Rfam assigns this 141-nucleotide sequence from a Dehalococcoidia bacterium to the family "c-di-AMP riboswitch aptamer (ydaO/yuaA leader)". Lineage of the source: Bacteria > Bacillati > Chloroflexota > Dehalococcoidia. From the family's description: This family represents a conserved RNA structure found upstream of the ydaO and yuaA genes in Bacillus subtilis and related genes in other bacteria.
RNA sequence: GCCGAAUAACUGCCGAGCCCGCCGGGCGGCGGGGCGGGGGAUCCACAUCCCACCGGGGUGAAUCUCGUCGGGGGCGGCGAGUAGGGCAGCCCAUUAGCCCGAACCCGACAGCUAACCUCGCAGGCAGGAGUGGGCCUUGAA
Number, nucleotide and partner (000 for none) at each position: 001g000002c000003c000004g000005a000006a000007u000008a000009a000010c000011u126012g125013c124014c123015g000016a000017g000018c033019c032020c031021g030022c029023c028024g000025g000026g000027c000028g023029g022030c021031g020032g019033g018034g121035c120036g119037g118038g117039g116040g000041a000042u000043c000044c055045a000046c000047a000048u000049c000050c000051c000052a000053c000054c000055g044056g106057g105058g104059u000060g000061a000062a000063u000064c081065u080066c079067g078068u000069c000070g000071g000072g000073g000074g000075c000076g000077g000078c067079g066080a065081g064082u000083a000084g100085g099086g098087c097088a000089g000090c000091c000092c000093a000094u000095u000096a000097g087098c086099c085100c084101g000102a000103a000104c058105c057106c056107g000108a000109c000110a000111g000112c000113u000114a000115a000116c039117c038118u037119c036120g035121c034122a000123g014124g013125c012126a011127g000128g000129a000130g000131u000132g000133g000134g000135c000136c000137u000138u000139g000140a000141a000